RNA sequence: GGCUAUCAUAUUUAUUAUGCACAAAUAGAUAGGAUAGUAAAACCACGUGGUAAGGGCACAGUUAGGUUCGCUGUGAGUGCACCCUUUAGUAGCAACUAACCAAAGCAAGUAUAAAUGGGAAAAGCUAUUACCUCGAUAGGCUUAAUGAGGUUCUUGACAGUAUGAUACUAACUGAACAAUAAGUAUCU
Number, nucleotide and partner (000 for none) at each position: 001g000002g038003c037004u036005a035006u034007c033008a000009u031010a030011u029012u028013u027014a026015u025016u000017a000018u000019g000020c000021a000022c000023a000024a000025a015026u014027a013028g012029a011030u010031a009032g000033g007034a006035u005036a004037g003038u002039a000040a000041a000042a000043c000044c000045a000046c000047g000048u000049g000050g000051u000052a000053a085054g084055g083056g082057c075058a074059c073060a072061g071062u070063u000064a000065g000066g000067u000068u000069c000070g062071c061072u060073g059074u058075g057076a000077g000078u000079g000080c000081a000082c056083c055084c054085u053086u000087u000088a000089g000090u000091a000092g000093c000094a000095a000096c000097u000098a000099a000100c118101c117102a116103a000104a000105g000106c156107a155108a154109g153110u000111a000112u000113a000114a000115a000116u102117g101118g100119g000120a000121a000122a000123a000124g000125c000126u000127a000128u000129u000130a151131c150132c149133u148134c147135g000136a000137u000138a000139g000140g000141c000142u000143u000144a000145a000146u000147g134148a133149g132150g131151u130152u000153c109154u108155u107156g106157a000158c000159a000160g000161u000162a000163u000164g187165a186166u185167a184168c183169u182170a000171a000172c000173u000174g000175a000176a000177c000178a000179a000180u000181a000182a169183g168184u167185a166186u165187c164188u000